tRNA: a 74-nucleotide sequence from Dictyostelium discoideum.
RNA sequence: GGGACUAUAGUUUAGUUGGAUAUAACGACCGGCUACGAACCGGUAGGUCUCAGGUUCGACCCCUGAUGGUCUCG
Numbered sequence: 001g002g003g004a005c006u007a008u009a010g011u012u013u014a015g016u017u018g019g020a021u022a023u024a025a026c027g028a029c030c031g032g033c034u035a036c037g038a039a040c041c042g043g044u045a046g047g048u049c050u051c052a053g054g055u056u057c058g059a060c061c062c063c064u065g066a067u068g069g070u071c072u073c074g
Stems, first nucleotide, its partner, number of pairs: 001073007010026003028044005050066005
Overview: Rfam classes the family as a transfer RNA. The family's consensus secondary structure is taken from published work. Rfam describes the family as follows. Transfer RNA (tRNA) molecules are approximately 80 nucleotides in length. Their secondary structure includes four short double-helical elements and three loops (D, anti-codon, and T loops). Further hydrogen bonds mediate the characteristic L-shaped molecular structure. tRNAs have two regions of fundamental functional importance: the anti-codon, which is responsible for specific mRNA codon recognition, and the 3' end, to which the tRNAs corresponding amino acid is attached (by aminoacyl-tRNA synthetases). tRNAs cope with the degeneracy of the genetic code in two manners: having more than one tRNA (with a specific anti-codon) for a particular amino acid; and 'wobble' base-pairing, i.e. permitting non-standard base-pairing at the 3rd anti-codon position.